The family of this 92-nucleotide sequence from Streptomyces tsukubensis is "sodF sRNA".
The family's RNA type in Rfam is small RNA.
It scores 87 bits against the family's covariance model.
The pairing is the family consensus, mapped onto this sequence.
On this family, see Kim et al., Nucleic Acids Res 2014: "Inverse regulation of Fe- and Ni-containing SOD genes by a Fur family regulator Nur through small RNA processed from 3'UTR of the sodF mRNA".
RNA sequence: GCGUCCUGCUCGUGAUCGUCUUCUCAACCUUCACGGAGCGGGCGGAAAAAAAGCGGAAGGCCCCACGAGGACGUGACUCGUGGGGCCUUCCG
Numbered sequence: 001g002c003g004u005c006c007u008g009c010u011c012g013u014g015a016u017c018g019u020c021u022u023c024u025c026a027a028c029c030u031u032c033a034c035g036g037a038g039c040g041g042g043c044g045g046a047a048a049a050a051a052a053g054c055g056g057a058a059g060g061c062c063c064c065a066c067g068a069g070g071a072c073g074u075g076a077c078u079c080g081u082g083g084g085g086c087c088u089u090c091c092g
Base pairs, nucleotide, nucleotide: 002044003043005042006041007040008039009038010037011036012034013033014032015031018028019027054092055091056090057089058088059087060086061085062084063083064082065081066080067079068078069077